[Rfam]
RNA sequence: AUGCCCGCUGAUUAUGAAAAGACGCGUUAUUCUGAGGAAUAAACCGGCCACCAGUCUUCUACCUUUGCCUCCAUCUUUCUCCUCAAUCUUUCCUCCUCUCUCCCCCUCUCUCUUUCUCCUCUCUGUAAACUGGUGGAUGGUCCGCUGACUGCGAUUAUGAGAUAUGAGGGCAU
Dot-bracket structure: ((((((............................((((.........................................))))....................................................................................))))))
The family of this 173-nucleotide RNA from Echeneis naucrates is "Small nucleolar RNA SNORD97". The match comes from Rfam's covariance-model search (65 bits). By type it is a C/D-box small nucleolar RNA. Pairs were carried over by alignment from the consensus structure, which was predicted with WAR. Rfam links the family to the GO terms RNA processing and nucleolus. NCBI's taxonomy places the organism under Eukaryota, Actinopteri, Teleostei, Clupeocephala, Echeneis.